[Rfam]
RNA: Glm Y RNA activator of glmS mRNA
Organism: Pantoea agglomerans
RNA sequence: AGCUGCUCAUUCACCUGUUUAUGAUUGCCCCGCUUAGCGGAGAAGAGCUCAUAAAGCCCGAAUGACGCACCAAACGGAGCCUGCCGUCCAACUGACCGAUAAUCGCUUGCGUUAUCAAACACCGGACGUAACGUUGAGUAAGGCUCCACCCA
Numbered sequence: 001a002g003c004u005g006c007u008c009a010u011u012c013a014c015c016u017g018u019u020u021a022u023g024a025u026u027g028c029c030c031c032g033c034u035u036a037g038c039g040g041a042g043a044a045g046a047g048c049u050c051a052u053a054a055a056g057c058c059c060g061a062a063u064g065a066c067g068c069a070c071c072a073a074a075c076g077g078a079g080c081c082u083g084c085c086g087u088c089c090a091a092c093u094g095a096c097c098g099a100u101a102a103u104c105g106c107u108u109g110c111g112u113u114a115u116c117a118a119a120c121a122c123c124g125g126a127c128g129u130a131a132c133g134u135u136g137a138g139u140a141a142g143g144c145u146c147c148a149c150c151c152a
Stems, first nucleotide, its partner, number of pairs: 005068002007065006019054006027048002076147007085128005098116005131139002